[Rfam]
RNA: Flavo-1 RNA
Organism: Pontimicrobium aquaticum
RNA sequence: UAAUUGCGUUAGCGAUUGCAGUGACAUCCUUUUUGUUGUCAGUUCGAGUUUGCAAAGCAAGUAUCGAGAACAAACAAAAAGAUAAAACGGAAAGCGCGACCUGAA
Dot-bracket structure: ...........(((.((...((...(((...((((((((..............................))).)))))..)))...))...)).)))........